[Rfam]
RNA sequence: AGAGUCCUGAUGUGUUUGUGGUAGACCCUAUGUUUUGACCUAACAUACUACCUUCGGGAGUUCGCGUUUUCGAGUGAAGUAAAUGCCUAGUACCUUGUACAUAGGACUUACAAAAGCUUGGAACAGAACACCCACCUGCUGAGUGCGGGUUCAAAACGAAGGAAAAAAAUGCGACGGCACAAUUGGGACUCUU
Numbered sequence: 001a002g003a004g005u006c007c008u009g010a011u012g013u014g015u016u017u018g019u020g021g022u023a024g025a026c027c028c029u030a031u032g033u034u035u036u037g038a039c040c041u042a043a044c045a046u047a048c049u050a051c052c053u054u055c056g057g058g059a060g061u062u063c064g065c066g067u068u069u070u071c072g073a074g075u076g077a078a079g080u081a082a083a084u085g086c087c088u089a090g091u092a093c094c095u096u097g098u099a100c101a102u103a104g105g106a107c108u109u110a111c112a113a114a115a116g117c118u119u120g121g122a123a124c125a126g127a128a129c130a131c132c133c134a135c136c137u138g139c140u141g142a143g144u145g146c147g148g149g150u151u152c153a154a155a156a157c158g159a160a161g162g163a164a165a166a167a168a169a170u171g172c173g174a175c176g177g178c179a180c181a182a183u184u185g186g187g188a189c190u191c192u193u
Base pairs, nucleotide, nucleotide: 002191003190004189005188006187007186008185009184010183011182012180013179014178015177017176018175019174031158032157033156034155036153037152038151039149040148056133057132058131060129061128062127063126067123069122070121071120072119073118074117075116081109082108086105087104088103089102
Shown here is a 193-nucleotide sequence from Bacillus yapensis, a member of the family "6S / SsrS RNA". The family's RNA type in Rfam is non-coding RNA gene. About the family: E. coli 6S RNA was the first non coding RNA to be sequenced, but its function was unknown until recently.